[Rfam]
RNA sequence: GCCCCCUUAGCUCAGUUGGCCAGAGCGGCUGUCUUGUAAACAGCAGGUCGUCGGUUCGAUUCCGACAGGGGGCU
Numbered sequence: 001g002c003c004c005c006c007u008u009a010g011c012u013c014a015g016u017u018g019g020c021c022a023g024a025g026c027g028g029c030u031g032u033c034u035u036g037u038a039a040a041c042a043g044c045a046g047g048u049c050g051u052c053g054g055u056u057c058g059a060u061u062c063c064g065a066c067a068g069g070g071g072g073c074u
Stems, first nucleotide, its partner, number of pairs: 001073007010026004028044005050066005

Shown here is a 74-nucleotide RNA from Streptomyces indicus, a member of the family "tRNA". A search with the family's covariance model found it, with a score of 71 bits. Rfam links the family to the GO term triplet codon-amino acid adaptor activity.